[Rfam]
Nucleotides: 111
Stems, first nucleotide, its partner, number of pairs: 001111005010098010020087003026057002029055002032052005040104003044100001061084004
Number, partner (000 for none) and nucleotide at each position: 001111a002110g003109c004108a005107g006000a007000g008000u009000a010098g011097g012096a013095a014094u015093u016092u017091a018090u019089g020087c021086g022085u023000a024000a025000a026057g027056u028000g029055c030054c031000c032052g033051c034050c035049g036048a037000a038000c039000g040104g041103g042102g043000a044100g045000u046000u047000g048036u049035c050034g051033g052032c053000a054030g055029g056027a057026c058000g059000a060000a061084a062083a063082g064081c065000a066000g067000g068000g069000g070000c071000u072000g073000c074000a075000u076000c077000c078000c079000c080000c081064g082063c083062u084061u085022g086021c087020g088000g089019u090018a091017u092016a093015g094014g095013u096012u097011u098010u099000g100044c101000a102042u103041c104040c105000c106000g107005c108004u109003g110002c111001u
Shown here is a 111-nucleotide RNA sequence from Ruminococcaceae bacterium CPB6, a member of the family "THF (Tetrahydrofolate) riboswitch aptamer".
It scores 84 bits against the family's covariance model.
Tetrahydrofolate (THF) riboswitch was first reported for Ames et al. as an RNA motif in 5' untranslated (5'-UTR)regions of folate transport and biosynthesis genes in Firmicutes genomes.
Lineage of the source: Bacteria > Bacillati > Bacillota > Eubacteriales > Oscillospiraceae.